[Rfam]
RNA sequence: AAAUGAAACUAGCAUACUUAUCGAAAGGUAAGGACGCAAAGCCAUGAGUCUAAGGAAAGUUAAAUUCUUUCUAUGAUUGUCAGGUUGCCAAA
Numbered sequence: 001a002a003a004u005g006a007a008a009c010u011a012g013c014a015u016a017c018u019u020a021u022c023g024a025a026a027g028g029u030a031a032g033g034a035c036g037c038a039a040a041g042c043c044a045u046g047a048g049u050c051u052a053a054g055g056a057a058a059g060u061u062a063a064a065u066u067c068u069u070u071c072u073a074u075g076a077u078u079g080u081c082a083g084g085u086u087g088c089c090a091a092a
Base pairs, nucleotide, nucleotide: 012037013036017032018031019030020029021028022027040086041085042084043083045082046081047080048077049076050075055071056070057069058068
Overview
A member of the RNA family "c-di-GMP-I riboswitch aptamer" from Clostridium puniceum, 92 nucleotides long. The match comes from Rfam's covariance-model search (78 bits). Taxonomically the source falls in Clostridium (Bacteria, Bacillati, Clostridia, Clostridiaceae).